RNA sequence: AUGAAGCACUGUUGUAAGUCGCUCUGGAUAAGGGCGUCUGCUAAAUACCAUAAA
Numbered sequence: 001a002u003g004a005a006g007c008a009c010u011g012u013u014g015u016a017a018g019u020c021g022c023u024c025u026g027g028a029u030a031a032g033g034g035c036g037u038c039u040g041c042u043a044a045a046u047a048c049c050a051u052a053a054a
Stems, first nucleotide, its partner, number of pairs: 013043001014041003020036006
RNA: UnaL2 LINE 3' element